This 208-nucleotide RNA from Oryza meridionalis belongs to the Rfam family "MIR812 microRNA precursor family". Rfam 15.1 lists 57,451 matches to the family in 24 species.
RNA sequence: UUUAAGUGCAACCAUAAGUUUCCCGCGCCCAACUUUGAUCGUCCGUCUUAUUUAAAAUUUUUUUACAAUUAGUAUUUUUAUUGUUAUGAGAUGAUAAAACAUGAAUAGUAAUUUACUCGUGACUUAUGUUUUUAAAUUUUUUUCAAAAAUUUUUCAAAUAAGGCAAACGGUCAAAGUUGGACGCGGAAAAACAAUGGCUGCACUUAAA
Dot-bracket structure: ............................((((((((((((((..(((((((..........................................................................................................)))))))..))))))))))))))............................